RNA: Bacterial large subunit ribosomal RNA, nucleotides 1906 to 2494
RNA sequence: AAUUAGCCGUGCAGAUGCGGUUUGCCUUCCGGAGGACGCGAAGACCCUAUGCAGCUUUACUGUAGUUUGAUAUUGUUAUUUGUCUAACAUAGUGUAGAAUACAAGGGAGUGAACACAUCAGUGAAAUACCUUGCUAAGUUAACACGAAUGACUUACUUUGAAAAAGAGGACAGUGUCAUAUGGUCAGUUUUGCUGGGGCGGUAGCCUCUAAAAAAGUAUCAGAGGCCUUCAAAGGUAUAUUUAAAUUGGUCAGAAACCAAUGGAAAAUUAAUUUCCAUCAAAGUGUAAUGAUAAAGUAUGCUUUACUGAUAGAUUGAUAAAUCGAUCAGCUACGCAAGUAGGACAUAGUGAUCCGGUGAUCCAGAAUGGAAUGAUCAUCGCUCAAGAAAUAAAAGUUACGCUAGGGAUAACAGGUUUAUCGUCUGCAAGAGUUCACAUUGUCCAGACGGUUUGACACCUCGAUGUCGACUCUUCUCAUCCUCCAGGUGUAGUCGCUUGGAAGGGUUCAGCUGUUCGCUGAGUAAAGAGGAACGUGAGUUGGGUUUAAUACGACGUGAGUCAGUAUAGAUUCUAUCCUCGGAAGGGAAAA
Numbered sequence: 001a002a003u004u005a006g007c008c009g010u011g012c013a014g015a016u017g018c019g020g021u022u023u024g025c026c027u028u029c030c031g032g033a034g035g036a037c038g039c040g041a042a043g044a045c046c047c048u049a050u051g052c053a054g055c056u057u058u059a060c061u062g063u064a065g066u067u068u069g070a071u072a073u074u075g076u077u078a079u080u081u082g083u084c085u086a087a088c089a090u091a092g093u094g095u096a097g098a099a100u101a102c103a104a105g106g107g108a109g110u111g112a113a114c115a116c117a118u119c120a121g122u123g124a125a126a127u128a129c130c131u132u133g134c135u136a137a138g139u140u141a142a143c144a145c146g147a148a149u150g151a152c153u154u155a156c157u158u159u160g161a162a163a164a165a166g167a168g169g170a171c172a173g174u175g176u177c178a179u180a181u182g183g184u185c186a187g188u189u190u191u192g193c194u195g196g197g198g199c200g201g202u203a204g205c206c207u208c209u210a211a212a213a214a215a216g217u218a219u220c221a222g223a224g225g226c227c228u229u230c231a232a233a234g235g236u237a238u239a240u241u242u243a244a245a246u247u248g249g250u251c252a253g254a255a256a257c258c259a260a261u262g263g264a265a266a267a268u269u270a271a272u273u274u275c276c277a278u279c280a281a282a283g284u285g286u287a288a289u290g291a292u293a294a295a296g297u298a299u300g301c302u303u304u305a306c307u308g309a310u311a312g313a314u315u316g317a318u319a320a321a322u323c324g325a326u327c328a329g330c331u332a333c334g335c336a337a338g339u340a341g342g343a344c345a346u347a348g349u350g351a352u353c354c355g356g357u358g359a360u361c362c363a364g365a366a367u368g369g370a371a372u373g374a375u376c377a378u379c380g381c382u383c384a385a386g387a388a389a390u391a392a393a394a395g396u397u398a399c400g401c402u403a404g405g406g407a408u409a410a411c412a413g414g415u416u417u418a419u420c421g422u423c424u425g426c427a428a429g430a431g432u433u434c435a436c437a438u439u440g441u442c443c444a445g446a447c448g449g450u451u452u453g454a455c456a457c458c459u460c461g462a463u464g465u466c467g468a469c470u471c472u473u474c475u476c477a478u479c480c481u482c483c484a485g486g487u488g489u490a491g492u493c494g495c496u497u498g499g500a501a502g503g504g505u506u507c508a509g510c511u512g513u514u515c516g517c518u519g520a521g522u523a524a525a526g527a528g529g530a531a532c533g534u535g536a537g538u539u540g541g542g543u544u545u546a547a548u549a550c551g552a553c554g555u556g557a558g559u560c561a562g563u564a565u566a567g568a569u570u571c572u573a574u575c576c577u578c579g580g581a582a583g584g585g586a587a588a589a
Stems, first nucleotide, its partner, number of pairs: 005022005025584008034576003038571001046405004051401002053397005059188004066180001068178005075152009085141004090136003102133005109116002156168004191203004204226006227386001229343002235301006241267002245261005268291002306329005312323003331340003354380007362373002414455003418452001419449007429439002466541001467539004471533001472530005479504002482499006506520005547565004551560003